The family of this 90-nucleotide RNA is "DUF3800-X RNA". The family's consensus secondary structure is taken from published work.
RNA sequence: GGGCGGGUAAAGCGGAGGAAUCCGCUUCCCUCCCCGAAAGUAUGAGGCCGCCGGAGGGCGGUCCGGAGCCGAGUAGGGGAGGUCCCGCCC
Numbered sequence: 001g002g003g004c005g006g007g008u009a010a011a012g013c014g015g016a017g018g019a020a021u022c023c024g025c026u027u028c029c030c031u032c033c034c035c036g037a038a039a040g041u042a043u044g045a046g047g048c049c050g051c052c053g054g055a056g057g058g059c060g061g062u063c064c065g066g067a068g069c070c071g072a073g074u075a076g077g078g079g080a081g082g083u084c085c086c087g088c089c090c
Stems, first nucleotide, its partner, number of pairs: 001090006029082007048061005